RNA sequence: UUGCGCCGGGUAAGUCCUGUACGACCAGCUCCCGCUGAAUUCCCCCAGGGUUGGAAAGCAGCAAGGGUAGGUGGUUGAGCGGUGCGAUGCAGAUCGCUUACCCACUU
Numbered sequence: 001u002u003g004c005g006c007c008g009g010g011u012a013a014g015u016c017c018u019g020u021a022c023g024a025c026c027a028g029c030u031c032c033c034g035c036u037g038a039a040u041u042c043c044c045c046c047a048g049g050g051u052u053g054g055a056a057a058g059c060a061g062c063a064a065g066g067g068u069a070g071g072u073g074g075u076u077g078a079g080c081g082g083u084g085c086g087a088u089g090c091a092g093a094u095c096g097c098u099u100a101c102c103c104a105c106u107u
Stems, first nucleotide, its partner, number of pairs: 008103008017092005022086002024083002
The family of this 107-nucleotide RNA from Bacteroidales bacterium 6E is "Bacteroidales small SRP".
A search with the family's covariance model found it, with a score of 106 bits.
For this family Rfam cites "A high-resolution transcriptome map identifies small RNA regulation of metabolism in the gut microbe Bacteroides thetaiotaomicron" (Ryan et al., Nat Commun, 2020).